Source information: The record is a 71-nucleotide RNA sequence from Muribaculaceae bacterium Isolate-002, which matches "Bacteroidetes FopS (family of paralogous sRNAs)" in Rfam. Rfam describes the family as follows. The RNA-binding protein RbpB and BTncRNA_FopS sRNA are involved in the post-transcription regulation of polysaccharide utilisation loci (PUL). FopS sRNAs function as post-transcriptional repressors by binding to the vicinity of the start codon of the first mRNA of target PUL polycistrons, typically corresponding to the cognate SusC homolog, impeding translation of the respective glycan transporter. Taxonomically the source falls in Muribaculaceae (Bacteria, Bacteroidota, Bacteroidia, Bacteroidales).
RNA sequence: GUGUUUUUCAUGGUAUUAGAUUUAAGGUUAAAGAUUUAUCGGAUGUCGGGAUGACAGCCGGUUUUUCUUUU
Numbered sequence: 001g002u003g004u005u006u007u008u009c010a011u012g013g014u015a016u017u018a019g020a021u022u023u024a025a026g027g028u029u030a031a032a033g034a035u036u037u038a039u040c041g042g043a044u045g046u047c048g049g050g051a052u053g054a055c056a057g058c059c060g061g062u063u064u065u066u067c068u069u070u071u
Base pairs, nucleotide, nucleotide: 041059042058044056045055046054047053